[Rfam]
This 35-nucleotide RNA sequence from Molossus molossus belongs to the Rfam family "Iron response element I".
The family's RNA type in Rfam is cis-regulatory element.
Pairs were carried over by alignment from the consensus structure, which is taken from published work.
Taxonomically the source falls in Molossus (Eukaryota, Bilateria, Theria, Boreoeutheria).
A search with the family's covariance model found it, with a score of 43 bits.
Rfam 15.1 lists 6,829 matches to the family in 599 species.
Its family is annotated with response to iron ion in the Gene Ontology.
RNA sequence: UGAUUUCCUGUUUCAACAGUGCUUGGACGGAACCA
Numbered sequence: 001u002g003a004u005u006u007c008c009u010g011u012u013u014c015a016a017c018a019g020u021g022c023u024u025g026g027a028c029g030g031a032a033c034c035a
Stems, first nucleotide, its partner, number of pairs: 001035002005032004010028001012027005017021001